[Rfam]
RNA sequence: CCUCCACUCUCCCCGCACAGGAGAGUGGACCGAGGCACCCGGCGCUCUCUGCCCUGACCGCGCAAGGUGCCUCAUGUGGCCGGAGGCACCGCACACCGCCGGCCAGGUAGCUCCGGGCUGCGGUGCCGGGCGGGCUGAGGGUCCCGUCCUGGCGC
Numbered sequence: 001c002c003u004c005c006a007c008u009c010u011c012c013c014c015g016c017a018c019a020g021g022a023g024a025g026u027g028g029a030c031c032g033a034g035g036c037a038c039c040c041g042g043c044g045c046u047c048u049c050u051g052c053c054c055u056g057a058c059c060g061c062g063c064a065a066g067g068u069g070c071c072u073c074a075u076g077u078g079g080c081c082g083g084a085g086g087c088a089c090c091g092c093a094c095a096c097c098g099c100c101g102g103c104c105a106g107g108u109a110g111c112u113c114c115g116g117g118c119u120g121c122g123g124u125g126c127c128g129g130g131c132g133g134g135c136u137g138a139g140g141g142u143c144c145c146g147u148c149c150u151g152g153c154g155c
Stems, first nucleotide, its partner, number of pairs: 003029004008024005032073005038067002042063001044061002046057002077105006086097001110124003114120002128149007